[Rfam]
RNA sequence: GUGGGUUCGGCUCAAACCCCCCGGAGCCGGACUCAUCGGCGACCCCCGUCUCCCCCGACGGGGGUCGUCUUCU
Number, nucleotide and partner (000 for none) at each position: 001g000002u035003g034004g033005g032006u031007u030008c029009g028010g027011c026012u025013c024014a000015a000016a000017c000018c000019c000020c000021c000022c000023g000024g013025a012026g011027c010028c009029g008030g007031a006032c005033u004034c003035a002036u000037c000038g069039g068040c067041g066042a065043c064044c063045c062046c061047c060048g059049u058050c057051u000052c000053c000054c000055c000056c000057g050058a049059c048060g047061g046062g045063g044064g043065u042066c041067g040068u039069c038070u000071u000072c000073u000

The record is a 73-nucleotide sequence from Virgisporangium aurantiacum, which matches "6C RNA" in Rfam. It is annotated as a cis-regulatory element. On this family, see Weinberg et al., Nucleic Acids Res 2007: "Identification of 22 candidate structured RNAs in bacteria using the CMfinder comparative genomics pipeline". A search with the family's covariance model found it, with a score of 57 bits.